[Rfam]
RNA sequence: CUGAGCUGAGGAUGGACAAAGUUAUCCCUGUCUGAAUCGGGUGUCGGUGAGGAAUUCUGUGGUGCUGAAGCUCGG
Numbered sequence: 001c002u003g004a005g006c007u008g009a010g011g012a013u014g015g016a017c018a019a020a021g022u023u024a025u026c027c028c029u030g031u032c033u034g035a036a037u038c039g040g041g042u043g044u045c046g047g048u049g050a051g052g053a054a055u056u057c058u059g060u061g062g063u064g065c066u067g068a069a070g071c072u073c074g075g
Base pairs, nucleotide, nucleotide: 001075002074003073004072005071006070007069
Rfam assigns this 75-nucleotide RNA from Oryctolagus cuniculus to the family "Small nucleolar RNA R38".
Rfam describes the family as follows. snoR38 is a C/D box small nucleolar RNA conserved across yeast, human, Arabidopsis and rice. It is encoded in the intron of elongation factor-1 gamma in both pombe and cerevisiae. snoR38 guides the methylation of 2'-O-ribose sites in 28S rRNA.
NCBI's taxonomy places the organism under Eukaryota, Bilateria, Vertebrata, Gnathostomata, Oryctolagus.
Gene Ontology terms of the family: nucleolus and RNA processing.
The base pairs follow the family's consensus structure, which was predicted with PFOLD.